[Rfam]
Source information
The record is a 108-nucleotide sequence from Natronincola ferrireducens, which matches "c-di-GMP-I riboswitch aptamer" in Rfam. The match comes from Rfam's covariance-model search (65 bits).
RNA sequence: CCUAAGGAAGGGCAAACUGCUCAAAAGAACAGGACGCAAAGCCUAGAGUCUAAGGUGCAGAUGGUAUGAUAACGAUACCUUUGCCACUAUGAUAGUCUGGUUGCUGAU
Numbered sequence: 001c002c003u004a005a006g007g008a009a010g011g012g013c014a015a016a017c018u019g020c021u022c023a024a025a026a027g028a029a030c031a032g033g034a035c036g037c038a039a040a041g042c043c044u045a046g047a048g049u050c051u052a053a054g055g056u057g058c059a060g061a062u063g064g065u066a067u068g069a070u071a072a073c074g075a076u077a078c079c080u081u082u083g084c085c086a087c088u089a090u091g092a093u094a095g096u097c098u099g100g101u102u103g104c105u106g107a108u
Base pairs, nucleotide, nucleotide: 012037013036017032018031019030021028022027040102041101042100043099045098046097047096048093049092050091055087056086057085